This 123-nucleotide RNA from Mycolicibacterium madagascariense belongs to the Rfam family "Glycine riboswitch aptamer".
RNA sequence: CGGUGCCUCUGGAAAGUGGCGAACACGUUCUUCGCCCGCCCAUGGGGAAAGGCACAGCCGGGACGAUCCGGUCGCGCUGAAUCUCUCAGGCACCCGCGACGGGUCGACGACAGAGGGAGAGGA
Numbered sequence: 001c002g003g004u005g006c007c008u009c010u011g012g013a014a015a016g017u018g019g020c021g022a023a024c025a026c027g028u029u030c031u032u033c034g035c036c037c038g039c040c041c042a043u044g045g046g047g048a049a050a051g052g053c054a055c056a057g058c059c060g061g062g063a064c065g066a067u068c069c070g071g072u073c074g075c076g077c078u079g080a081a082u083c084u085c086u087c088a089g090g091c092a093c094c095c096g097c098g099a100c101g102g103g104u105c106g107a108c109g110a111c112a113g114a115g116g117g118a119g120a121g122g123a
Stems, first nucleotide, its partner, number of pairs: 004118001006116006018036006038091003042086001045085003051078002
The organism belongs to Mycobacterium (subgen. Mycolicibacterium), within Bacteria.